[Rfam]
RNA sequence: CCCCUGUAAUGAGUUUCCAUGCUAAUACUGAAAUACCAGGUAGCGGGGUUUUACCCUGCAUCCAGUGUUGUUGAGAUACAUUGUGCUUCUCUUAAAGCCACCUAAGGGAC
Numbered sequence: 001c002c003c004c005u006g007u008a009a010u011g012a013g014u015u016u017c018c019a020u021g022c023u024a025a026u027a028c029u030g031a032a033a034u035a036c037c038a039g040g041u042a043g044c045g046g047g048g049u050u051u052u053a054c055c056c057u058g059c060a061u062c063c064a065g066u067g068u069u070g071u072u073g074a075g076a077u078a079c080a081u082u083g084u085g086c087u088u089c090u091c092u093u094a095a096a097g098c099c100a101c102c103u104a105a106g107g108g109a110c
Base pairs, nucleotide, nucleotide: 002108003107004106041058042057043056045054
This 110-nucleotide sequence from Phyllostomus discolor belongs to the Rfam family "Small nucleolar RNA U6-53/MBII-28". Gene Ontology terms of the family: RNA processing and nucleolus. On this family, see Huttenhofer et al., EMBO J 2001: "RNomics: an experimental approach that identifies 201 candidates for novel, small, non-messenger RNAs in mouse". A search with the family's covariance model found it, with a score of 76 bits. The pairing is the family consensus, mapped onto this sequence.